[Rfam]
Nucleotides: 108
Stems, first nucleotide, its partner, number of pairs: 004105004010099001012097016029080002
Number, partner (000 for none) and nucleotide at each position: 001000u002000g003000a004105a005104g006103g007102c008000c009000u010099c011000u012097u013096g014095c015094u016093c017092a018091a019090a020089u021088g022087a023086g024085u025084a026083u027082u028000c029080c030079a031000c032000a033000a034000u035000g036000u037000c038000a039000c040000u041000c042000u043000c044000c045000a046000a047000a048000a049000a050000a051000u052000g053000u054000u055000u056000u057000a058000a059000a060000g061000u062000c063000u064000c065000u066000a067000g068000u069000u070000g071000a072000c073000a074000u075000a076000u077000c078000u079030u080029g081000a082027g083026a084025u085024a086023c087022u088021c089020a090019u091018u092017u093016g094015g095014g096013c097012a098000u099010g100000a101000a102007g103006u104005u105004u106000u107000u108000g
Background: A member of the RNA family "MIR828 microRNA precursor family" from Nicotiana attenuata, 108 nucleotides long. NCBI's taxonomy places the organism under Eukaryota, Viridiplantae, Tracheophyta, Euphyllophyta, Nicotiana. The base pairs follow the family's consensus structure, which was predicted with RNAalifold. The literature on the family includes a 2006 paper in Genes Dev by Rajagopalan et al., "A diverse and evolutionarily fluid set of microRNAs in Arabidopsis thaliana". The match comes from Rfam's covariance-model search (69 bits).